[Rfam]
RNA sequence: CAGGCAUGCUGGAGCCCCGCAGCGGCGCCUGGGUUGGUCGAUGACACGACCCGACACCGUUUCACUUCCGGGGCUUUG
Numbered sequence: 001c002a003g004g005c006a007u008g009c010u011g012g013a014g015c016c017c018c019g020c021a022g023c024g025g026c027g028c029c030u031g032g033g034u035u036g037g038u039c040g041a042u043g044a045c046a047c048g049a050c051c052c053g054a055c056a057c058c059g060u061u062u063c064a065c066u067u068c069c070g071g072g073g074c075u076u077u078g
Stems, first nucleotide, its partner, number of pairs: 012076008023059003030053004036047001
The family of this 78-nucleotide RNA from Georhizobium profundi is "ybhL leader".
Its family is annotated with regulation of gene expression in the Gene Ontology.
Lineage of the source: Bacteria > Alphaproteobacteria > Hyphomicrobiales > Rhizobiaceae > Georhizobium.
For this family Rfam cites "Evidence for a second class of S-adenosylmethionine riboswitches and other regulatory RNA motifs in alpha-proteobacteria" (Corbino et al., Genome Biol, 2005).